[Rfam]
Description:
The family of this 91-nucleotide RNA from Spiroplasma endosymbiont of Megaselia nigra is "Bacterial small signal recognition particle RNA". From the family's description: The signal recognition particle (SRP) is a universally conserved ribonucleoprotein involved in the co-translational targeting of proteins to membranes.
RNA sequence: CUUAUGUCAUUACAAUAGUUACAUUUGAAAUUGGUCAGGACCGGAAGGUAGCAGCCAUAAGACUAAGGACUAUGUGUAAUGACAUUUUUUA
Dot-bracket structure: ...((((((((((.((((((...(((.....((((....(((....)))....))))..))).....)))))))..)))))))))......

Overview:
A reference for the family is Rosenblad et al. (2003), "SRPDB: Signal Recognition Particle Database", Nucleic Acids Res. Gene Ontology terms of the family: SRP-dependent cotranslational protein targeting to membrane, signal sequence recognition and signal recognition particle, plasma membrane targeting. Its Rfam clan is "SRP clan". The match comes from Rfam's covariance-model search (63 bits).